About this RNA: Shown here is a 56-nucleotide sequence, a member of the family "Antizyme RNA frameshifting stimulation element". The base pairs follow the family's consensus structure, which is taken from published work. A reference for the family is Ivanov et al. (2004), "Identification of a new antizyme mRNA +1 frameshifting stimulatory pseudoknot in a subset of diverse invertebrates and its apparent absence in intermediate species", J Mol Biol. From the family's description: This family represents a structural element which is found in antizyme mRNA and is known to promote frameshifting. Antizyme genes have have two partially overlapping open reading frames, the second, which encodes the functional protein requires +1 translational frameshifting. This frameshift is stimulated by a pseudoknot present 3' of the frameshift site in the antizyme mRNA. The frameshifting efficiency is dependent on the level of polyamines in the cell, when the polyamine concentration is high frameshifting is more likely to occur which leads to an increase in the quantity of functional antizyme produced. The functional antizyme acts to reduce ornithine decarboxylase (ODC) activity which leads to a drop in polyamines present in the cell. Therefore, this family can be thought of as a biosensor for intracellular free polyamines.

RNA sequence: UGAUGCCCCUCACCCACUGUCGAAGAUCCCCGGAGGGCAAGGGGGCGGCAGGGAUU
Numbered sequence: 001u002g003a004u005g006c007c008c009c010u011c012a013c014c015c016a017c018u019g020u021c022g023a024a025g026a027u028c029c030c031c032g033g034a035g036g037g038c039a040a041g042g043g044g045g046c047g048g049c050a051g052g053g054a055u056u
Base pairs, nucleotide, nucleotide: 006044007043008042009041010040013037014036015035017033018032025056026055027054028053029052030051